tRNA: a 73-nucleotide RNA from Caldicoprobacter faecalis.
A search with the family's covariance model found it, with a score of 64 bits.
Rfam links the family to the GO term triplet codon-amino acid adaptor activity.
RNA sequence: GGGGCGUUAACUCAACUGGUAGAGUGCCAUCUUGACGUGGUGGAAGUUACAGGUUCGAGUCCUGUACGCCCCA
Numbered sequence: 001g002g003g004g005c006g007u008u009a010a011c012u013c014a015a016c017u018g019g020u021a022g023a024g025u026g027c028c029a030u031c032u033u034g035a036c037g038u039g040g041u042g043g044a045a046g047u048u049a050c051a052g053g054u055u056c057g058a059g060u061c062c063u064g065u066a067c068g069c070c071c072c073a
Stems, first nucleotide, its partner, number of pairs: 001072007010025004027043005049065005
Dot-bracket structure: (((((((..((((........)))).(((((.......))))).....(((((.......)))))))))))).